The family of this 265-nucleotide RNA from Thermoactinomyces sp. AS95 is "Bacterial large signal recognition particle RNA".
RNA sequence: CCGCGCUAGACGGGGAGGUAGCGGUGCCCUGUAACCCGUAAUCCGCUAUAACGGGGUUGACGCCUGUCCGAGGCGUGCUUUGUGCGAGGCUGGUCUGGAUCAUCCGUGUUGAUGACCGGGUCCUGCGCAACGAUCACUUCCGAACCGUGUCAGGUCCUGACGGAAGCAGCACUAAGGGAGACCGGUCGUGUGCCGCAGGGGUGCCUGGUCUGAGCUGAUGGUUCAGGGGCCGCUCGGGCAAGACACGUCGGAGACAGGUGCGCGG
Numbered sequence: 001c002c003g004c005g006c007u008a009g010a011c012g013g014g015g016a017g018g019u020a021g022c023g024g025u026g027c028c029c030u031g032u033a034a035c036c037c038g039u040a041a042u043c044c045g046c047u048a049u050a051a052c053g054g055g056g057u058u059g060a061c062g063c064c065u066g067u068c069c070g071a072g073g074c075g076u077g078c079u080u081u082g083u084g085c086g087a088g089g090c091u092g093g094u095c096u097g098g099a100u101c102a103u104c105c106g107u108g109u110u111g112a113u114g115a116c117c118g119g120g121u122c123c124u125g126c127g128c129a130a131c132g133a134u135c136a137c138u139u140c141c142g143a144a145c146c147g148u149g150u151c152a153g154g155u156c157c158u159g160a161c162g163g164a165a166g167c168a169g170c171a172c173u174a175a176g177g178g179a180g181a182c183c184g185g186u187c188g189u190g191u192g193c194c195g196c197a198g199g200g201g202u203g204c205c206u207g208g209u210c211u212g213a214g215c216u217g218a219u220g221g222u223u224c225a226g227g228g229g230c231c232g233c234u235c236g237g238g239c240a241a242g243a244c245a246c247g248u249c250g251g252a253g254a255c256a257g258g259u260g261c262g263c264g265g
Base pairs, nucleotide, nucleotide: 001265002264003263004262005261006260009058010057011056012030013029014028015027017025019023035055036054037053038052039051063258064257065256066255067254068253072249073248074247075246076245079242080241081240082239083238085236086235087234088233092231093230094227095226096225097224098223099222102219103218106215107214114210115209116208117207118206119205120204121203122199123198124197125196126195127194128190129189131188132187133186134185135184137180138179139178140177141176147172148171149170150169155164156163157162
Rfam describes the family as follows. The signal recognition particle (SRP) is a universally conserved ribonucleoprotein involved in the co-translational targeting of proteins to membranes.